[Rfam]
RNA sequence: ACAGUACAAACUGAUCAGGCGGUUAACUUAUUAAGAAGUUAAUGCAGCUGGGCCGUAAAAUGGCAGCAGGAUUAAUUAAGCCUGUGGGACAGAA
Numbered sequence: 001a002c003a004g005u006a007c008a009a010a011c012u013g014a015u016c017a018g019g020c021g022g023u024u025a026a027c028u029u030a031u032u033a034a035g036a037a038g039u040u041a042a043u044g045c046a047g048c049u050g051g052g053c054c055g056u057a058a059a060a061u062g063g064c065a066g067c068a069g070g071a072u073u074a075a076u077u078a079a080g081c082c083u084g085u086g087g088g089a090c091a092g093a094a
Stems, first nucleotide, its partner, number of pairs: 011092003016088001018049003022043006052064005066085005
RNA: NiCo (Nickel/Cobalt) riboswitch aptamer
Organism: Sporomusa silvacetica